Rfam assigns this 126-nucleotide RNA from Erinaceus europaeus to the family "Small Cajal body specific RNA 3". The sequence is in the family's curated seed alignment. The family's RNA type in Rfam is small Cajal body RNA. About the family: scaRNAs are a specific class of small nuclear RNAs which localise to the Cajal bodies and guide the modification of RNA polymerase II transcribed spliceosomal RNAs U1, U2, U4, U5 and U12. Rfam 15.1 lists 642 matches to the family in 535 species.

RNA sequence: AAGGGAACCAGCCAUGUGAACAGAGGAGAACACCCCUGUCCACACAUUGCAUUGUUCCUACAUAGACAUGGAGGUCUCUGUCUGACUUGGGCCAGCCACUAAGUCAGAUCGUUCACUCCAGACAGU
Numbered sequence: 001a002a003g004g005g006a007a008c009c010a011g012c013c014a015u016g017u018g019a020a021c022a023g024a025g026g027a028g029a030a031c032a033c034c035c036c037u038g039u040c041c042a043c044a045c046a047u048u049g050c051a052u053u054g055u056u057c058c059u060a061c062a063u064a065g066a067c068a069u070g071g072a073g074g075u076c077u078c079u080g081u082c083u084g085a086c087u088u089g090g091g092c093c094a095g096c097c098a099c100u101a102a103g104u105c106a107g108a109u110c111g112u113u114c115a116c117u118c119c120a121g122a123c124a125g126u
Stems, first nucleotide, its partner, number of pairs: 004058003011050002015044004020039002027037002070119004078111001080109003084105007